[Rfam]
RNA sequence: GCUUGCUUAGCUCAAUUCGGUAGAGCUUUGGUUUUGUAAACCAAAGGUUAUCGGUUCAAGUCCGAUAGCAAGCU
Numbered sequence: 001g002c003u004u005g006c007u008u009a010g011c012u013c014a015a016u017u018c019g020g021u022a023g024a025g026c027u028u029u030g031g032u033u034u035u036g037u038a039a040a041c042c043a044a045a046g047g048u049u050a051u052c053g054g055u056u057c058a059a060g061u062c063c064g065a066u067a068g069c070a071a072g073c074u
Base pairs, nucleotide, nucleotide: 001073002072003071004070005069006068007067010026011025012024013023028044029043030042031041032040050066051065052064053063054062
Shown here is a 74-nucleotide RNA sequence from Chlamydomonas moewusii, a member of the family "tRNA". Its family is annotated with triplet codon-amino acid adaptor activity in the Gene Ontology. The base pairs follow the family's consensus structure, which is taken from published work. Taxonomically the source falls in Chlamydomonas (Eukaryota, Viridiplantae, core chlorophytes, Chlamydomonadaceae). It is annotated as a transfer RNA.